[Rfam]
RNA sequence: CGAGAUGACCAGACAAUCGCUGCUUUGUCGUUGUGCUGCUCAGUUUACUGAGUGGCAGACGGGCGAAGGGGAGGAAAGUCCGGGCUCCAUUGGGCAGAGUGCCAGAUAACGUCUGGGGGGCGCGAGUCCACGACCAGUGCAGCAGAGAGCAAACCGCCGAUGACUACUUUUGUAGAACAGGUAAGGGUGAAAGGGUGCGGUAAGAGCGCACCGCGCGGCUAGUAAUAGUUCGUGGCACGGUAAACUCCACUCGGAGCAAUUUCAAAUAGGGUCCCAUGUUCCUUUGAGAAUAACGCACGGCCCGUGCGGGGACCGGGUAGAAAGCUUGAGCCAACGAGCGAUUGUUGGCCUAGACGAAUGAUUGUCACUUUAACCUAGUUAAAGCACAGAACCCGGCUUAUGGUCAUCUCGCAAC
Number, nucleotide and partner (000 for none) at each position: 001c411002g410003a409004g408005a407006u406007g405008a404009c403010c402011a401012g366013a365014c364015a363016a362017u361018c360019g000020c071021u070022g000023c068024u067025u066026u065027g064028u063029c000030g000031u000032u000033g000034u000035g000036c000037u000038g000039c000040u000041c000042a000043g000044u000045u000046u000047a000048c000049u000050g000051a000052g000053u000054g000055g000056c000057a000058g000059a000060c000061g000062g000063g028064c027065g026066a025067a024068g023069g000070g021071g020072a000073g000074g000075a000076a399077a398078g397079u000080c396081c395082g394083g393084g392085c256086u255087c254088c253089a000090u000091u000092g303093g302094g301095c300096a000097g252098a251099g250100u249101g248102c116103c115104a114105g113106a112107u000108a000109a000110c000111g000112u106113c105114u104115g103116g102117g131118g129119g128120g127121c126122g000123c000124g000125a000126g121127u120128c119129c118130a000131c117132g247133a246134c000135c000136a000137g245138u244139g241140c240141a000142g000143c000144a000145g000146a000147g000148a000149g000150c000151a000152a000153a000154c186155c185156g182157c181158c180159g000160a000161u000162g000163a000164c175165u174166a173167c172168u000169u000170u000171u000172g167173u166174a165175g164176a000177a000178c000179a000180g158181g157182u156183a000184a000185g155186g154187g000188u000189g000190a000191a000192a000193g000194g212195g211196u210197g209198c208199g207200g000201u000202a000203a000204g000205a000206g000207c199208g198209c197210a196211c195212c194213g236214c234215g233216c232217g231218g230219c228220u227221a226222g000223u000224a000225a000226u221227a220228g219229u000230u218231c217232g216233u215234g214235g000236c213237a000238c000239g000240g140241u139242a000243a000244a138245c137246u133247c132248c101249a100250c099251u098252c097253g088254g087255a086256g085257c000258a000259a000260u323261u322262u321263c320264a000265a000266a000267u000268a000269g000270g314271g313272u312273c311274c310275c309276a000277u000278g000279u000280u000281c000282c000283u000284u000285u000286g000287a000288g000289a000290a000291u000292a000293a000294c308295g307296c306297a305298c304299g000300g095301c094302c093303c092304g298305u297306g296307c295308g294309g275310g274311g273312a272313c271314c270315g000316g000317g000318u000319a000320g263321a262322a261323a260324g000325c000326u000327u000328g000329a000330g349331c348332c347333a346334a345335c344336g343337a342338g000339c000340g000341a000342u337343u336344g335345u334346u333347g332348g331349c330350c000351u000352a000353g000354a000355c000356g000357a000358a000359u000360g018361a017362u016363u015364g014365u013366c012367a000368c000369u000370u000371u000372a000373a000374c000375c000376u000377a000378g000379u000380u000381a000382a000383a000384g000385c000386a000387c000388a000389g000390a000391a000392c084393c083394c082395g081396g080397c078398u077399u076400a000401u011402g010403g009404u008405c007406a006407u005408c004409u003410c002411g001412c000413a000414a000415c000